[Rfam]
The family of this 114-nucleotide RNA sequence from Laodelphax striatellus is "Potassium channel RNA editing signal". It is annotated as a cis-regulatory element. The family's consensus secondary structure is taken from published work. Lineage of the source: Eukaryota > Pterygota > Fulgoromorpha > Delphacidae > Laodelphax. Gene Ontology term of the family: adenosine to inosine editing.
Nucleotides: 114
Base pairs, nucleotide, nucleotide: 001114002113004111005110007108008107009106010105011104013102014101015100016099018097021095022094037077038076040074049063050062051061
Number, partner (000 for none) and nucleotide at each position: 001114g002113u003000c004111g005110g006000c007108u008107a009106c010105g011104g012000c013102g014101a015100u016099a017000u018097g019000g020000c021095g022094c023000c024000a025000a026000a027000a028000a029000c030000u031000u032000a033000c034000g035000u036000g037077g038076g039000c040074a041000u042000g043000u044000u045000u046000g047000u048000g049063g050062g051061c052000g053000c054000g055000c056000u057000g058000u059000g060000c061051g062050c063049u064000c065000u066000c067000g068000c069000c070000g071000g072000c073000g074040u075000a076038c077037u078000c079000a080000c081000c082000a083000u084000c085000g086000c087000c088000c089000u090000c091000c092000c093000c094022g095021u096000g097018c098000c099016u100015g101014u102013c103000a104011u105010c106009g107008u108007a109000u110005c111004c112000a113002a114001c